[Rfam]
RNA sequence: AGGCCUGCUCCGGGGUGCACGCCAGUGCUGAGAUCCACACCCGCGAACUUGACCCGGUUCAUGCCGGCGUAAGAAGAGCACUGAUCUCGACA
Numbered sequence: 001a002g003g004c005c006u007g008c009u010c011c012g013g014g015g016u017g018c019a020c021g022c023c024a025g026u027g028c029u030g031a032g033a034u035c036c037a038c039a040c041c042c043g044c045g046a047a048c049u050u051g052a053c054c055c056g057g058u059u060c061a062u063g064c065c066g067g068c069g070u071a072a073g074a075a076g077a078g079c080a081c082u083g084a085u086c087u088c089g090a091c092a
Stems, first nucleotide, its partner, number of pairs: 006080005011043004016037001017028004048073004054067004

The record is a 92-nucleotide RNA sequence from Bordetella trematum, which matches "TPP riboswitch aptamer (THI element)" in Rfam. The base pairs follow the family's consensus structure, which is taken from published work.